Shown here is a 263-nucleotide sequence from Corynespora cassiicola, a member of the family "Fungal signal recognition particle RNA". The match comes from Rfam's covariance-model search (144 bits). The family's RNA type in Rfam is non-coding RNA gene. The family's consensus secondary structure is taken from published work.
RNA sequence: UACCUGUAACGGGUCUUCGUCAGAAGGUGCACCGUCAUCCACAUGCUCAUGCCAAGUCUACACCCUGGCAGGUGCCCAGUUCGAGUCCUUGAUUGGACGUCCCACUCAAGCGGGUAACCCUUGAUGCUGGGUGUCCCUAAGCAAUGAAUACAAAUGACGAGGGAAGAAAUUCUGCAGUCGCGUAUUCAAUCAGGGACGGCGGCGCUGGAAUACACUUGCUAGGGUUGGAAUGGGUGUUGUGGGCUGGUGUAUCGACUGAUUUU
Numbered sequence: 001u002a003c004c005u006g007u008a009a010c011g012g013g014u015c016u017u018c019g020u021c022a023g024a025a026g027g028u029g030c031a032c033c034g035u036c037a038u039c040c041a042c043a044u045g046c047u048c049a050u051g052c053c054a055a056g057u058c059u060a061c062a063c064c065c066u067g068g069c070a071g072g073u074g075c076c077c078a079g080u081u082c083g084a085g086u087c088c089u090u091g092a093u094u095g096g097a098c099g100u101c102c103c104a105c106u107c108a109a110g111c112g113g114g115u116a117a118c119c120c121u122u123g124a125u126g127c128u129g130g131g132u133g134u135c136c137c138u139a140a141g142c143a144a145u146g147a148a149u150a151c152a153a154a155u156g157a158c159g160a161g162g163g164a165a166g167a168a169a170u171u172c173u174g175c176a177g178u179c180g181c182g183u184a185u186u187c188a189a190u191c192a193g194g195g196a197c198g199g200c201g202g203c204g205c206u207g208g209a210a211u212a213c214a215c216u217u218g219c220u221a222g223g224g225u226u227g228g229a230a231u232g233g234g235u236g237u238u239g240u241g242g243g244c245u246g247g248u249g250u251a252u253c254g255a256c257u258g259a260u261u262u263u
Base pairs, nucleotide, nucleotide: 002014003013004012019260020259021258022257023256028251029250030249031248032247033246034245038243039242043237044236045235046234047233048232049231050230052228053227054226055225063224064223065222066221067220068219069218070217071216072215073214074213076208077207078206079205080204081202082201083200085197086196087195088194089193090192091191092190093189095136097134098133099132101131102130103129104128106124107123108122109121110120112119113118137141145188146187147186148185149184150183151182155180156179157178158177163172164171165170